[Rfam]
RNA sequence: AGGUAAUGUCUCCCGCACCUUUAUCACCGGAGGCACUCGGUCAUGCUGUGGGCCAAUGCGGCCUUAGACGUUUAUCGUCAGGGGUGUGAUGUGAGGGGGGGUUCGAUGCCCC
Numbered sequence: 001a002g003g004u005a006a007u008g009u010c011u012c013c014c015g016c017a018c019c020u021u022u023a024u025c026a027c028c029g030g031a032g033g034c035a036c037u038c039g040g041u042c043a044u045g046c047u048g049u050g051g052g053c054c055a056a057u058g059c060g061g062c063c064u065u066a067g068a069c070g071u072u073u074a075u076c077g078u079c080a081g082g083g084g085u086g087u088g089a090u091g092u093g094a095g096g097g098g099g100g101g102u103u104c105g106a107u108g109c110c111c112c
Stems, first nucleotide, its partner, number of pairs: 001020004007035007036095004040090008050064005067079004098112005
Dot-bracket structure: [[[[..(((((((...]]]]........)))))))((((((((((((..(((((.....)))))..((((.....))))...)))))))).))))..(((((.....)))))
The family of this 112-nucleotide sequence from Paenibacillus sp. NFR01 is "epsC RNA". A search with the family's covariance model found it, with a score of 105 bits. By type it is a cis-regulatory element.